[Rfam]
RNA sequence: GAUAUGCGUUGAAGCGGGAGGUUGCCGACGGUGCGUCGGGUAAUUUCCGCCGAGUAUGUCCGAUUUUAAAUUGGGCGGCUG
Numbered sequence: 001g002a003u004a005u006g007c008g009u010u011g012a013a014g015c016g017g018g019a020g021g022u023u024g025c026c027g028a029c030g031g032u033g034c035g036u037c038g039g040g041u042a043a044u045u046u047c048c049g050c051c052g053a054g055u056a057u058g059u060c061c062g063a064u065u066u067u068a069a070a071u072u073g074g075g076c077g078g079c080u081g
Base pairs, nucleotide, nucleotide: 014050015049016048018047019046020045021044025039026038027037028036029035058079059078060077064075065074066073
The family of this 81-nucleotide sequence from Ruminococcus sp. YE71 is "S10-Clostridia ribosomal protein leader". The literature on the family includes a 2020 paper in BMC Microbiol by Eckert and Weinberg, "Discovery of 20 novel ribosomal leader candidates in bacteria and archaea". The family's consensus secondary structure is taken from published work.